[Rfam]
RNA sequence: CGAUAACAACACAACAAUAUCAGUAUCUCAUGCUGUUGCCCGAACCUACUCGGGCGUUUUUU
Number, nucleotide and partner (000 for none) at each position: 001c000002g021003a020004u019005a018006a000007c000008a000009a000010c000011a000012c000013a000014a000015c000016a000017a000018u005019a004020u003021c002022a034023g033024u032025a031026u030027c000028u000029c000030a026031u025032g024033c023034u022035g000036u000037u056038g055039c054040c053041c052042g051043a050044a000045c000046c000047u000048a000049c000050u043051c042052g041053g040054g039055c038056g037057u000058u000059u000060u000061u000062u000
RNA: Anti GcvB sRNA